[Rfam]
RNA: Plastid-rps12 3UTR RNA
RNA sequence: GGUUUCCGUUGGUGCAAAUCCAACCAUUCAGCUGAAUUUAAGAUAAUAAGCAAGUCUCCAUUGGUAGCAAAAGGUUAUCCAUUAAGCGGA
Numbered sequence: 001g002g003u004u005u006c007c008g009u010u011g012g013u014g015c016a017a018a019u020c021c022a023a024c025c026a027u028u029c030a031g032c033u034g035a036a037u038u039u040a041a042g043a044u045a046a047u048a049a050g051c052a053a054g055u056c057u058c059c060a061u062u063g064g065u066a067g068c069a070a071a072a073g074g075u076u077a078u079c080c081a082u083u084a085a086g087c088g089g090a
Stems, first nucleotide, its partner, number of pairs: 009023004057090003060082002063079006